Mammalian CPEB3 ribozyme: a 75-nucleotide sequence from Alligator sinensis.
For this family Rfam cites "Autocatalytic RNA cleavage in the human beta-globin pre-mRNA promotes transcription termination" (Teixeira et al., Nature, 2004).
From the family's description: The mammalian CPEB3 ribozyme is a self cleaving RNA located in the second intron of the CPEB3 gene which belongs to a family of genes regulating messenger RNA polyadenylation.
NCBI's taxonomy places the organism under Eukaryota, Metazoa, Euteleostomi, Alligatoridae, Alligator.
It scores 49 bits against the family's covariance model.

[Rfam]
RNA sequence: UUUUAAGAUCAGGGCCAUAGCAGAAGCGCCCAUGGCACAGCCCUGUCAGAUUCCAAUGAAUCUGCAAAUCCUUUU
Dot-bracket structure: ...........((((...[[.[[.[(.(.......).).))))...(((((((....)))))))....].]].]]